[Rfam]
RNA sequence: CCGUUGGGUCGCUUCCUCCGCGGCCUGACGUUUUCUCCUCUAUUUCUCCUUUGUAGACUUGGCACACAUUCACACGAAUGUGUGCAUUUUU
Number, nucleotide and partner (000 for none) at each position: 001c000002c000003g029004u028005u027006g026007g025008g024009u023010c022011g021012c000013u000014u000015c000016c000017u000018c000019c000020g000021c011022g010023g009024c008025c007026u006027g005028a004029c003030g000031u000032u000033u000034u000035c000036u000037c000038c000039u057040c056041u055042a054043u053044u000045u000046c000047u000048c000049c000050u000051u000052u000053g043054u042055a041056g040057a039058c000059u000060u000061g000062g085063c084064a083065c082066a081067c080068a079069u078070u077071c076072a000073c000074a000075c000076g071077a070078a069079u068080g067081u066082g065083u064084g063085c062086a000087u000088u000089u000090u000091u000
Neisseria metabolic switch regulator b (RcoF1/NgncR163): a 91-nucleotide RNA sequence from Neisseria chenwenguii. The family has 6 seed sequences and 65 matches in Rfam 15.1. Pairs were carried over by alignment from the consensus structure, which was predicted with RNAfold. Its family is annotated with protein binding, mRNA binding and regulation of translation, ncRNA-mediated in the Gene Ontology. NCBI's taxonomy places the organism under Bacteria, Pseudomonadati, Betaproteobacteria, Neisseriales, Neisseria. Sibling sRNA described and independently named in three publications. NgncR163 is N. gonorrhoeae while the others are N. meningitidis RNAs.